Shown here is a 90-nucleotide RNA sequence from Pelusios castaneus, a member of the family "mir-7 microRNA precursor family". A search with the family's covariance model found it, with a score of 80 bits. Pairs were carried over by alignment from the consensus structure, which was predicted with PFOLD. Rfam's curators write: This family represents the microRNA (miRNA) precursor mir-7.
[Rfam]
RNA sequence: CAGUCCGGCUCUGCGUGGAAGACUAGUGAUUUUGUUGUUCUAACUUAUAAAAACGACAACAAAUCACAGCCUGCCAUACAGCGCGGACCC
Number, nucleotide and partner (000 for none) at each position: 001c000002a000003g088004u087005c086006c085007g000008g084009c083010u000011c081012u080013g079014c000015g077016u076017g075018g074019a000020a072021g071022a000023c069024u068025a000026g067027u066028g065029a064030u063031u062032u061033u000034g060035u059036u058037g057038u056039u055040c000041u000042a000043a000044c000045u000046u000047a000048u000049a000050a000051a000052a000053a000054c000055g039056a038057c037058a036059a035060c034061a032062a031063a030064u029065c028066a027067c026068a024069g023070c000071c021072u020073g000074c018075c017076a016077u015078a000079c013080a012081g011082c000083g009084c008085g006086g005087a004088c003089c000090c000